This 173-nucleotide sequence from Arthrobacter sp. ISL-30 belongs to the Rfam family "c-di-AMP riboswitch aptamer (ydaO/yuaA leader)". Lineage of the source: Bacteria > Bacillati > Actinomycetes > Micrococcales > Arthrobacter. Rfam links the family to the GO terms regulation of gene expression and cyclic-di-AMP binding. The match comes from Rfam's covariance-model search (60 bits).
RNA sequence: CUCUGCCGCAUCCCGGAUUCCCCAACAUGAAGGCAGAGACGGGGGACCCAGAGUCUCCGGGCCGUUGCACAAAGUGCAUGGGCCCUUGGGGUGAAGCCGCCAAUGAUCAACGUGCGGCCGGAUGACCUCAUCCGAACCCGACAGCUAACUCCGCAGGCGUUGAGAGGCAAUCA
Number, nucleotide and partner (000 for none) at each position: 001c000002u000003c000004u159005g158006c157007c156008g000009c000010a000011u038012c000013c036014c000015g000016g000017a000018u000019u000020c000021c000022c000023c000024a000025a000026c000027a000028u000029g000030a000031a000032g000033g000034c000035a000036g013037a000038g011039a000040c153041g152042g151043g150044g149045g000046a000047c000048c000049c088050a087051g000052a000053g000054u000055c000056u000057c000058c000059g000060g000061g000062c000063c000064g000065u000066u000067g000068c000069a000070c000071a000072a000073a000074g000075u000076g000077c000078a000079u000080g000081g000082g000083c000084c000085c000086u000087u050088g049089g139090g138091g137092u000093g000094a000095a000096g000097c117098c116099g115100c114101c000102a000103a000104u000105g000106a000107u000108c000109a000110a000111c000112g000113u000114g100115c099116g098117g097118c000119c000120g133121g132122a131123u130124g000125a000126c000127c000128u000129c000130a123131u122132c121133c120134g000135a000136a000137c091138c090139c089140g000141a000142c000143a000144g000145c000146u000147a000148a000149c044150u043151c042152c041153g040154c000155a000156g007157g006158c005159g004160u000161u000162g000163a000164g000165a000166g000167g000168c000169a000170a000171u000172c000173a000